[Rfam]
RNA sequence: GGUGUUCCCGGUGUCUCGCUCGCAAUGCGGUGCCGCGAUCACAGACAGGCAGAGGGGAGGGUCUGAGAUGCCGCUUUCUGACCGAGAGGUCACAUGCCACGAGGUGUGGGUCGCCAACCAGAAAAAUGAGCAGAUGUGGGAACAAGUGCACCCCGCAGCUUUGCGGAUGAGUGCCGUGUUUCCGCGUCUGAUUGAAAGAGGCUGACUGGCACGGGCGCCAGGAUUGGCAGGAGCUUUUCUGCUCUGGGAUCCUGUCGUUUAAGGCUUGAGUUCAAUUUUCGAGACGUCUGCUUUUGCACCCUCAGUGCAAUCGCACACGAACUUGAUUCAGACUACUCCUGCC
Number, nucleotide and partner (000 for none) at each position: 001g340002g339003u000004g000005u283006u282007c281008c000009c000010g278011g277012u000013g000014u053015c052016u051017c000018g000019c000020u000021c000022g000023c000024a000025a000026u000027g036028c035029g034030g000031u000032g000033c000034c029035g028036c027037g000038a000039u000040c000041a000042c000043a000044g000045a000046c000047a000048g000049g000050c000051a016052g015053a014054g000055g000056g000057g000058a000059g000060g000061g000062u000063c331064u330065g329066a328067g327068a000069u211070g210071c209072c208073g000074c000075u000076u000077u000078c000079u092080g091081a090082c089083c088084g000085a000086g000087a000088g083089g082090u081091c080092a079093c108094a107095u106096g105097c104098c103099a000100c000101g000102a000103g098104g097105u096106g095107u094108g093109g207110g206111u205112c204113g202114c201115c200116a000117a000118c000119c000120a000121g000122a000123a000124a000125a000126a000127u000128g000129a000130g000131c190132a189133g188134a187135u186136g185137u184138g000139g000140g000141a000142a000143c000144a000145a000146g000147u000148g000149c000150a000151c000152c000153c000154c000155g000156c000157a000158g000159c000160u000161u000162u000163g000164c000165g000166g000167a000168u000169g000170a000171g000172u000173g000174c000175c000176g000177u000178g000179u000180u000181u000182c000183c000184g137185c136186g135187u134188c133189u132190g131191a000192u000193u000194g000195a000196a000197a000198g000199a000200g115201g114202c113203u000204g112205a111206c110207u109208g072209g071210c070211a069212c000213g000214g000215g000216c000217g000218c000219c000220a000221g000222g000223a000224u000225u000226g000227g000228c000229a000230g000231g000232a000233g000234c000235u000236u000237u000238u000239c000240u000241g000242c000243u000244c000245u000246g000247g000248g000249a000250u000251c000252c000253u000254g000255u000256c000257g000258u000259u000260u000261a000262a000263g000264g000265c000266u000267u000268g000269a000270g000271u000272u000273c000274a000275a000276u000277u011278u010279u000280c000281g007282a006283g005284a000285c319286g318287u317288c000289u315290g314291c000292u000293u000294u000295u000296g000297c000298a000299c000300c000301c000302u000303c000304a000305g000306u000307g000308c000309a000310a000311u000312c000313g000314c290315a289316c000317a287318c286319g285320a000321a000322c000323u000324u000325g000326a000327u067328u066329c065330a064331g063332a000333c000334u000335a000336c000337u000338c000339c002340u001341g000342c000343c000
Nuclear RNase P: a 343-nucleotide sequence from Toxoplasma gondii. Its Rfam clan is "RNaseP clan". Ribonuclease P (RNase P) is a ubiquitous endoribonuclease, found in archaea, bacteria and eukarya as well as chloroplasts and mitochondria. Its best characterised activity is the generation of mature 5'-ends of tRNAs by cleaving the 5'-leader elements of precursor-tRNAs. The family has 116 seed sequences and 3,848 matches in Rfam 15.1. The source organism's lineage runs through Eukaryota, Sar, Coccidia, Eimeriorina and Toxoplasma gondii.